RNA sequence: GAAAUCAGAUUAGAAGGGAUGAUGGGUGGCCGAUGAAGAACUAAUCUUAUUUCAAACAUUUGAAAAUUGAUUUUUCAAAUUAAAAAAUAGGAUUAGUCUGCCCAUUUUCCAUAUAAUUUUUUAAGUUAUUCAUUAAAUAGCUUAUUUUCGUUAUGAAAAAUGCAACUAAUCCUUCCAAAUUCAUUUGGGAGGAUUUUUUU
Numbered sequence: 001g002a003a004a005u006c007a008g009a010u011u012a013g014a015a016g017g018g019a020u021g022a023u024g025g026g027u028g029g030c031c032g033a034u035g036a037a038g039a040a041c042u043a044a045u046c047u048u049a050u051u052u053c054a055a056a057c058a059u060u061u062g063a064a065a066a067u068u069g070a071u072u073u074u075u076c077a078a079a080u081u082a083a084a085a086a087a088u089a090g091g092a093u094u095a096g097u098c099u100g101c102c103c104a105u106u107u108u109c110c111a112u113a114u115a116a117u118u119u120u121u122u123a124a125g126u127u128a129u130u131c132a133u134u135a136a137a138u139a140g141c142u143u144a145u146u147u148u149c150g151u152u153a154u155g156a157a158a159a160a161u162g163c164a165a166c167u168a169a170u171c172c173u174u175c176c177a178a179a180u181u182c183a184u185u186u187g188g189g190a191g192g193a194u195u196u197u198u199u200u
Stems, first nucleotide, its partner, number of pairs: 016110004023104004029098001031096001042095011058080009125141006168195011